The record is a 77-nucleotide sequence from Flexivirga aerilata, which matches "6C RNA" in Rfam.
The organism belongs to Flexivirga, within Bacteria.
Pairs were carried over by alignment from the consensus structure, which is taken from published work.
The match comes from Rfam's covariance-model search (52 bits).
The literature on the family includes a 2007 paper in Nucleic Acids Res by Weinberg et al., "Identification of 22 candidate structured RNAs in bacteria using the CMfinder comparative genomics pipeline".
Its family is annotated with sporulation in the Gene Ontology.

RNA sequence: GGUGUGAGACCUCAACCCCCCCUGAGGUCAUCACAUCGAAGGCCCCCGCUGACCCCCCCCGGCGGGGGCCUUCAUAU
Numbered sequence: 001g002g003u004g005u006g007a008g009a010c011c012u013c014a015a016c017c018c019c020c021c022c023u024g025a026g027g028u029c030a031u032c033a034c035a036u037c038g039a040a041g042g043c044c045c046c047c048g049c050u051g052a053c054c055c056c057c058c059c060c061g062g063c064g065g066g067g068g069c070c071u072u073c074a075u076a077u
Stems, first nucleotide, its partner, number of pairs: 002037001004034004008029006038073013